[Rfam]
RNA sequence: UCCGGGGGAAGCUCACCGCCGAGGCCACGCACGGGGUGUGCGUCACCCACAGCCUCCGCCUCGGGGAAGGUCUGAGGGAAGGGCCGCCCGCGGCUCCAGCAGAGCCCCGCCCGCGAGUGGGGCGGGUGAGCCACCAGCAAGGGGGGGCGCCGCGCUAUAUGACUUUAUAGUGGGCCGGUCCAUGGGCAGGAGAAGCCGAGCAGGUUCCGCGUGGAGCUCCCGCUCCCCCGGGGCCCCGGCGGAUGCUCGUGGCCCCGCGGUGCUUUGAGACAGACUCACGGCCGGCGAUUGAGUCCAAUGGGUGAGGUGGGGCACGGCCCUACAACCCAAUUCAGACUACUCUCCCCCGGA
Numbered sequence: 001u002c003c004g005g006g007g008g009a010a011g012c013u014c015a016c017c018g019c020c021g022a023g024g025c026c027a028c029g030c031a032c033g034g035g036g037u038g039u040g041c042g043u044c045a046c047c048c049a050c051a052g053c054c055u056c057c058g059c060c061u062c063g064g065g066g067a068a069g070g071u072c073u074g075a076g077g078g079a080a081g082g083g084c085c086g087c088c089c090g091c092g093g094c095u096c097c098a099g100c101a102g103a104g105c106c107c108c109g110c111c112c113g114c115g116a117g118u119g120g121g122g123c124g125g126g127u128g129a130g131c132c133a134c135c136a137g138c139a140a141g142g143g144g145g146g147g148c149g150c151c152g153c154g155c156u157a158u159a160u161g162a163c164u165u166u167a168u169a170g171u172g173g174g175c176c177g178g179u180c181c182a183u184g185g186g187c188a189g190g191a192g193a194a195g196c197c198g199a200g201c202a203g204g205u206u207c208c209g210c211g212u213g214g215a216g217c218u219c220c221c222g223c224u225c226c227c228c229c230g231g232g233g234c235c236c237c238g239g240c241g242g243a244u245g246c247u248c249g250u251g252g253c254c255c256c257g258c259g260g261u262g263c264u265u266u267g268a269g270a271c272a273g274a275c276u277c278a279c280g281g282c283c284g285g286c287g288a289u290u291g292a293g294u295c296c297a298a299u300g301g302g303u304g305a306g307g308u309g310g311g312g313c314a315c316g317g318c319c320c321u322a323c324a325a326c327c328c329a330a331u332u333c334a335g336a337c338u339a340c341u342c343u344c345c346c347c348c349g350g351a
Stems, first nucleotide, its partner, number of pairs: 001351004007345003012306006020063005034048005072335005082283004092106005107125006126279005132273001146264009307323007
RNA: Nuclear RNase P